About this RNA: c-di-AMP riboswitch aptamer (ydaO/yuaA leader): a 123-nucleotide RNA from Clostridium sp. USBA 49.
RNA sequence: UGUUUAUAUUUGCUGAAUCUACUUAUUUGUAGAACGGGGGAUAAAAUUUGGGGUGAAUCUUAAUGAAGGGAACUCUAUGCCCUAACCCGUCAACUAACCUCGUAAGCAUAAUAGAGGAGGAUU
Numbered sequence: 001u002g003u004u005u006a007u008a009u010u011u012g013c014u015g016a017a018u019c020u021a022c023u024u025a026u027u028u029g030u031a032g033a034a035c036g037g038g039g040g041a042u043a044a045a046a047u048u049u050g051g052g053g054u055g056a057a058u059c060u061u062a063a064u065g066a067a068g069g070g071a072a073c074u075c076u077a078u079g080c081c082c083u084a085a086c087c088c089g090u091c092a093a094c095u096a097a098c099c100u101c102g103u104a105a106g107c108a109u110a111a112u113a114g115a116g117g118a119g120g121a122u123u
Base pairs, nucleotide, nucleotide: 011108012107013106014105018033019032020031021030022029034103035102036101037100038099039098042050043049051088052087053086059065068082069081070080
Rfam describes the family as follows. This family represents a conserved RNA structure found upstream of the ydaO and yuaA genes in Bacillus subtilis and related genes in other bacteria.
NCBI's taxonomy places the organism under Bacteria, Bacillati, Bacillota, Clostridiaceae, Clostridium.